[Rfam]
RNA: Ribosomal S15 leader
RNA sequence: UUUGUUGGCUGAGUUAGUGAUCGGCUGGCAUAACAAUUAAUUAUUUUCUGGAGAGACUUAUGUCACUAAGCGUUGAAGAAAAAGCAGCAAUCCUAGCUGAACACAGCACUGGCGAA
Numbered sequence: 001u002u003u004g005u006u007g008g009c010u011g012a013g014u015u016a017g018u019g020a021u022c023g024g025c026u027g028g029c030a031u032a033a034c035a036a037u038u039a040a041u042u043a044u045u046u047u048c049u050g051g052a053g054a055g056a057c058u059u060a061u062g063u064c065a066c067u068a069a070g071c072g073u074u075g076a077a078g079a080a081a082a083a084g085c086a087g088c089a090a091u092c093c094u095a096g097c098u099g100a101a102c103a104c105a106g107c108a109c110u111g112g113c114g115a116a
Stems, first nucleotide, its partner, number of pairs: 007026006047070001049068003053064001